[Rfam]
RNA sequence: AUUGUGAUGUGGUUUGGUAACUCCACCACCGUUGGCUUUUAUUUUUUGCCUGCGGUGUCGGAGUUCCCGCCCUGCAUUACUUU
Dot-bracket structure: ...(((((((((...((.(((((...(.((((.(((...........))).)))).)...))))).))...)))))))))...
RNA: mir-2765 microRNA precursor family